RNA sequence: CCUAAGCAAGGUGAUGGGGUUCCACCUAUUUAACCGCCGCUUGGGCUGAUGACUCCUACAGAAAC
Numbered sequence: 001c002c003u004a005a006g007c008a009a010g011g012u013g014a015u016g017g018g019g020u021u022c023c024a025c026c027u028a029u030u031u032a033a034c035c036g037c038c039g040c041u042u043g044g045g046c047u048g049a050u051g052a053c054u055c056c057u058a059c060a061g062a063a064a065c
Stems, first nucleotide, its partner, number of pairs: 010026004016056006036046003
RNA: Fluoride riboswitch aptamer (crcB RNA motif)
Organism: Vibrio proteolyticus